Shown here is a 96-nucleotide RNA sequence from Sporolactobacillus laevolacticus, a member of the family "TPP riboswitch aptamer (THI element)".
On this family, see Rodionov et al., J Biol Chem 2002: "Comparative genomics of thiamin biosynthesis in procaryotes. New genes and regulatory mechanisms".
The organism belongs to Sporolactobacillus laevolacticus, within Bacteria.
A search with the family's covariance model found it, with a score of 76 bits.
[Rfam]
RNA sequence: UUCGUCCACUAGGGGUGCUUCUGCUGAGAGGGACUUGUCCCGACCCUUGGACCUGAUCUGGGUAAUACCAGCGUAGGAAAGUGGUUAUUGUGACUA
Numbered sequence: 001u002u003c004g005u006c007c008a009c010u011a012g013g014g015g016u017g018c019u020u021c022u023g024c025u026g027a028g029a030g031g032g033a034c035u036u037g038u039c040c041c042g043a044c045c046c047u048u049g050g051a052c053c054u055g056a057u058c059u060g061g062g063u064a065a066u067a068c069c070a071g072c073g074u075a076g077g078a079a080a081g082u083g084g085u086u087a088u089u090g091u092g093a094c095u096a
Stems, first nucleotide, its partner, number of pairs: 006084005011047004017024002031040003052077004058071004